Rfam assigns this 102-nucleotide RNA sequence from Ornithinibacillus halotolerans to the family "Purine riboswitch aptamer".
RNA sequence: AGUAAAAAUUAAAUAAGUUCUCGUAUAAAUUUGGGGAUAUGGCCCGAAAGUUUCUACCAAGCUACCAUAAAUAGCUUGACUACGAGGUUAUGUAUAUAAACG
Number, nucleotide and partner (000 for none) at each position: 001a000002g000003u000004a000005a000006a000007a000008a000009u000010u000011a000012a000013a000014u000015a000016a000017g000018u000019u087020c086021u085022c084023g083024u082025a081026u000027a000028a000029a000030u048031u047032u046033g045034g044035g043036g000037a000038u000039a000040u000041g000042g000043c035044c034045c033046g032047a031048a030049a000050g000051u000052u000053u000054c000055u000056a000057c000058c078059a077060a076061g075062c074063u073064a072065c000066c000067a000068u000069a000070a000071a000072u064073a063074g062075c061076u060077u059078g058079a000080c000081u025082a024083c023084g022085a021086g020087g019088u000089u000090a000091u000092g000093u000094a000095u000096a000097u000098a000099a000100a000101c000102g000

The organism belongs to Ornithinibacillus, within Bacteria. The family's consensus secondary structure is taken from published work. Its family is annotated with purine nucleobase biosynthetic process in the Gene Ontology. A search with the family's covariance model found it, with a score of 90 bits. Rfam describes the family as follows. Riboswitches are metabolite binding domains within certain messenger RNAs that serve as precision sensors for their corresponding targets.